[Rfam]
RNA sequence: AAUAUCCAUGAUUUCCGAGUUAACCAGCCUAAAGCAAAUGGCAAUGGCAAUUAACCUCAGGGUAUAAAUGGAAACAUUUGUGCCUCCCUUUUGGAAAGGAAAUUAUACCUUGUAUGA
Numbered sequence: 001a002a003u004a005u006c007c008a009u010g011a012u013u014u015c016c017g018a019g020u021u022a023a024c025c026a027g028c029c030u031a032a033a034g035c036a037a038a039u040g041g042c043a044a045u046g047g048c049a050a051u052u053a054a055c056c057u058c059a060g061g062g063u064a065u066a067a068a069u070g071g072a073a074a075c076a077u078u079u080g081u082g083c084c085u086c087c088c089u090u091u092u093g094g095a096a097a098g099g100a101a102a103u104u105a106u107a108c109c110u111u112g113u114a115u116g117a
Stems, first nucleotide, its partner, number of pairs: 004110001011103006019055005027048003034042002060085011086094002